[Rfam]
RNA: int-alpA RNA
RNA sequence: ACCAAGUCUAGGGUAGCUCCCGAAAGGCCAGAACCCUACUGGCCUGACUUGGUGAUUAUUAGGG
Numbered sequence: 001a002c003c004a005a006g007u008c009u010a011g012g013g014u015a016g017c018u019c020c021c022g023a024a025a026g027g028c029c030a031g032a033a034c035c036c037u038a039c040u041g042g043c044c045u046g047a048c049u050u051g052g053u054g055a056u057u058a059u060u061a062g063g064g
Base pairs, nucleotide, nucleotide: 001053002052003051004050005049006048007047008046011021012020013019027043028042029041030040031039037064